[Rfam]
RNA sequence: GUCACCGUGAGGUGGGGUCUGGAGGAAGCCCGAGGCGAAACUCUGCACCGAGGAACACGAACCGCGUAGAAGGCGGGUCGGUCUGGGUGAGACCGCCAUGGAAGGCUAAGCCCGUGAUCGGUGCGUAGACGCGGCGGGCGUGUGAGAGGAGGGUGAGGUG
Numbered sequence: 001g002u003c004a005c006c007g008u009g010a011g012g013u014g015g016g017g018u019c020u021g022g023a024g025g026a027a028g029c030c031c032g033a034g035g036c037g038a039a040a041c042u043c044u045g046c047a048c049c050g051a052g053g054a055a056c057a058c059g060a061a062c063c064g065c066g067u068a069g070a071a072g073g074c075g076g077g078u079c080g081g082u083c084u085g086g087g088u089g090a091g092a093c094c095g096c097c098a099u100g101g102a103a104g105g106c107u108a109a110g111c112c113c114g115u116g117a118u119c120g121g122u123g124c125g126u127a128g129a130c131g132c133g134g135c136g137g138g139c140g141u142g143u144g145a146g147a148g149g150a151g152g153g154u155g156a157g158g159u160g
Stems, first nucleotide, its partner, number of pairs: 002015005030158002036152001041146003048137003062134006073126003077122007085113004091106001093104001
Dot-bracket structure: .(((((....)))))..............((....(....(((....(((...........((((((.....(((.(((((((.((((..(.(..........).)...))))..))))))).)))..)))))))))......))).....)....))..
The record is a 160-nucleotide RNA sequence from Sphaerisporangium album, which matches "Group II catalytic intron D1-D4-3" in Rfam. A search with the family's covariance model found it, with a score of 95 bits.